[Rfam]
RNA sequence: AUUGCAAUGCAGAACUGGCGGAUAAGUGGAGCACCACGUGGACUGUAUUGUGUAAAGCCGACCGCCUGGGCAGUUUCU
Numbered sequence: 001a002u003u004g005c006a007a008u009g010c011a012g013a014a015c016u017g018g019c020g021g022a023u024a025a026g027u028g029g030a031g032c033a034c035c036a037c038g039u040g041g042a043c044u045g046u047a048u049u050g051u052g053u054a055a056a057g058c059c060g061a062c063c064g065c066c067u068g069g070g071c072a073g074u075u076u077c078u
Base pairs, nucleotide, nucleotide: 003052004051005050006049007048008047009046010045011044012043015040017066018065019064020063021062026037027036028035029034057071058070059069